[Rfam]
RNA sequence: AUCGUUCAAUUUAAAUGGAAACAUUUAGAUCGGAAGUAGACAUUAGUCGAAGGAACGCAUG
Dot-bracket structure: ..(((((.(((((((((....)))))))))..[.....(((....)))....)))))]...
Glutamine riboswitch aptamer (glnA leader): a 61-nucleotide RNA. Gene Ontology term of the family: glutamine binding. Rfam's curators put it in the seed alignment. For this family Rfam cites "Bacterial aptamers that selectively bind glutamine" (Ames and Breaker, RNA Biol, 2011).